[Rfam]
RNA sequence: UACGAGGGAACUGCGUGAGGAAGAGGGCGCAUAGAAAGGCCAGCGACUAAAGUGAAAGAAAAAUCCCUCCGACCGUCAUGGGAGCCUGCUGCGUCAGAGUUAAGGGUAAGUUAUGCCCCCGAAAUGGGACAAGAAUUAAGCCAGCAUCAAAUCUACGUAGGGCAAUUAAAAGAGGCUUUAAAGACACGGGGAGUAAAGGUUAAAAGUGGUGACUUAUUUAGAUUUUUUGAUUUUGUGAAAGAUACCUGCCCUU
Numbered sequence: 001u002a003c004g005a006g007g008g009a010a011c012u013g014c015g016u017g018a019g020g021a022a023g024a025g026g027g028c029g030c031a032u033a034g035a036a037a038g039g040c041c042a043g044c045g046a047c048u049a050a051a052g053u054g055a056a057a058g059a060a061a062a063a064u065c066c067c068u069c070c071g072a073c074c075g076u077c078a079u080g081g082g083a084g085c086c087u088g089c090u091g092c093g094u095c096a097g098a099g100u101u102a103a104g105g106g107u108a109a110g111u112u113a114u115g116c117c118c119c120c121g122a123a124a125u126g127g128g129a130c131a132a133g134a135a136u137u138a139a140g141c142c143a144g145c146a147u148c149a150a151a152u153c154u155a156c157g158u159a160g161g162g163c164a165a166u167u168a169a170a171a172g173a174g175g176c177u178u179u180a181a182a183g184a185c186a187c188g189g190g191g192a193g194u195a196a197a198g199g200u201u202a203a204a205a206g207u208g209g210u211g212a213c214u215u216a217u218u219u220a221g222a223u224u225u226u227u228u229g230a231u232u233u234u235g236u237g238a239a240a241g242a243u244a245c246c247u248g249c250c251c252u253u
Stems, first nucleotide, its partner, number of pairs: 014026001016024001065106004073099001074097001077093001079091003114131002118128004137180003140176003187229008197215006238253002241250001243248001
Rfam assigns this 253-nucleotide sequence from Rhinopithecus bieti to the family "Mason-Pfizer monkey virus packaging signal". A search with the family's covariance model found it, with a score of 207 bits. Lineage of the source: Eukaryota > Vertebrata > Dipnotetrapodomorpha > Eutheria > Rhinopithecus. Rfam describes the family as follows. This family represents a group of sequences that are related to the Mason-Pfizer monkey virus (MPMV) packaging signal. A reference for the family is Mustafa et al. (2004), "Mutational analysis of the predicted secondary RNA structure of the Mason-Pfizer monkey virus packaging signal", Virus Res.